Notes
A member of the RNA family "6S / SsrS RNA" from Neomoorella thermoacetica, 185 nucleotides long. E. coli 6S RNA was the first non coding RNA to be sequenced, but its function was unknown until recently. It consists of 184 nucleotides that fold into an extended hairpin structure with a large single-stranded internal bulge. The 6S RNA specifically associates with RNA polymerase holoenzyme containing the sigma70 specificity factor. This interaction represses expression from a sigma70-dependent promoter during stationary phase. 6S RNA homologs have recently been identified in most bacterial genomes. Many Gram-positive species have two copies of 6S RNA. In Bacillus subtilis, both copies appear to interact with RNA polymerase holoenzyme containing the housekeeping sigma factor and be expressed during different stages of growth. In many proteobacteria, 6S RNA may be processed from a transcript encoding homologs of the E. coli YgfA protein which is a putative 5-formyltetrahydrofolate cycloligase activity. For this family Rfam cites "6S RNA is a widespread regulator of eubacterial RNA polymerase that resembles an open promoter" (Barrick et al., RNA, 2005). By type it is a non-coding RNA gene. Rfam's curators put it in the seed alignment.
[Rfam]
RNA sequence: UUUACCCUGCGAUGUUCGUGAAGAGCCGUGCAGUUUUGAGCCAACACCAAAACUUAGGGAACCUGACAUCCGGGCAUGGCUUGCAGGCCCCAGUUUCCAGGGGAAGCAAAAAGUGUCCGUGGAGGUACCCACCUGCUGAGAGCAGGUUCAAAAACCACGGCAUUCACGGCAUUUGUGGGGUUUUA
Numbered sequence: 001u002u003u004a005c006c007c008u009g010c011g012a013u014g015u016u017c018g019u020g021a022a023g024a025g026c027c028g029u030g031c032a033g034u035u036u037u038g039a040g041c042c043a044a045c046a047c048c049a050a051a052a053c054u055u056a057g058g059g060a061a062c063c064u065g066a067c068a069u070c071c072g073g074g075c076a077u078g079g080c081u082u083g084c085a086g087g088c089c090c091c092a093g094u095u096u097c098c099a100g101g102g103g104a105a106g107c108a109a110a111a112a113g114u115g116u117c118c119g120u121g122g123a124g125g126u127a128c129c130c131a132c133c134u135g136c137u138g139a140g141a142g143c144a145g146g147u148u149c150a151a152a153a154a155c156c157a158c159g160g161c162a163u164u165c166a167c168g169g170c171a172u173u174u175g176u177g178g179g180g181u182u183u184u185a
Stems, first nucleotide, its partner, number of pairs: 004181008012172004017168003033155004037150006057130003061126004068120001071119007083107002088103004